L31-Gammaproteobacteria ribosomal protein leader: a 51-nucleotide RNA from Arsenophonus nasoniae. Clan: Ribosomal Protein L31 Leader clan. It is one of the family's seed sequences. NCBI's taxonomy places the organism under Bacteria, Pseudomonadota, Enterobacterales, Morganellaceae, Arsenophonus nasoniae. The family's RNA type in Rfam is cis-regulatory leader. On this family, see Eckert and Weinberg, BMC Microbiol 2020: "Discovery of 20 novel ribosomal leader candidates in bacteria and archaea".
RNA sequence: CGUAUGGUGUCUAGCGUUAGGGUUAGAUAGCGAUGCGGCCUAACUAGAGGU
Numbered sequence: 001c002g003u004a005u006g007g008u009g010u011c012u013a014g015c016g017u018u019a020g021g022g023u024u025a026g027a028u029a030g031c032g033a034u035g036c037g038g039c040c041u042a043a044c045u046a047g048a049g050g051u
Base pairs, nucleotide, nucleotide: 001037002036003035004034005033007031008030011026012025013024014023015022